[Rfam]
RNA sequence: CCAGGUGGAGAAGUAGCCGCUGUGCCGCGUUGUACAGAGGAAAGUCCGGACUCCAAGGGAAGAUGGUGGCAGGUAACUCCUGCCGGGGGUAACCCUAGGUUAGGGCCACAGAAAAUUACCGCCUCUACGAGGUAAGGGUGAAAAGGUGCGGUAAGAGCGCACCGUGCUCGUGGUGACACGUAGCAGCCAGGCAACCACCACCAGGAGCAAGGCUAAGAAGGGUAUUGUGUCUUCUCUCAUGUUACCCGGGUAAGUCGCUUGAGGUAAGUAGCGAUGCUUGCCCCAGAUGAAUGGCUACAUAAACAGAAUCCGGCUUAUCUCCACCUGGUCCG
Numbered sequence: 001c002c003a004g005g006u007g008g009a010g011a012a013g014u015a016g017c018c019g020c021u022g023u024g025c026c027g028c029g030u031u032g033u034a035c036a037g038a039g040g041a042a043a044g045u046c047c048g049g050a051c052u053c054c055a056a057g058g059g060a061a062g063a064u065g066g067u068g069g070c071a072g073g074u075a076a077c078u079c080c081u082g083c084c085g086g087g088g089g090u091a092a093c094c095c096u097a098g099g100u101u102a103g104g105g106c107c108a109c110a111g112a113a114a115a116u117u118a119c120c121g122c123c124u125c126u127a128c129g130a131g132g133u134a135a136g137g138g139u140g141a142a143a144a145g146g147u148g149c150g151g152u153a154a155g156a157g158c159g160c161a162c163c164g165u166g167c168u169c170g171u172g173g174u175g176a177c178a179c180g181u182a183g184c185a186g187c188c189a190g191g192c193a194a195c196c197a198c199c200a201c202c203a204g205g206a207g208c209a210a211g212g213c214u215a216a217g218a219a220g221g222g223u224a225u226u227g228u229g230u231c232u233u234c235u236c237u238c239a240u241g242u243u244a245c246c247c248g249g250g251u252a253a254g255u256c257g258c259u260u261g262a263g264g265u266a267a268g269u270a271g272c273g274a275u276g277c278u279u280g281c282c283c284c285a286g287a288u289g290a291a292u293g294g295c296u297a298c299a300u301a302a303a304c305a306g307a308a309u310c311c312g313g314c315u316u317a318u319c320u321c322c323a324c325c326u327g328g329u330c331c332g
Base pairs, nucleotide, nucleotide: 001328002327003326004325005324006323007322008321009320010319011318013298014297015296016295017294018293020037021036022035023034024033025032042316043315044314046313047312048311049310050309051207052206053205054204059238060237062235064203065202066201067200068199069083070082071081072080073079084098085096086095087094088093099198100197103196104195105192106191107190119137120136121133122132123131124130125129145163146162147161148160149159150158164187165185166184167183168182170179171178172177211256212255213254214253220247221246222245223244224243231241233239263282264281265280266279267278268277269276270275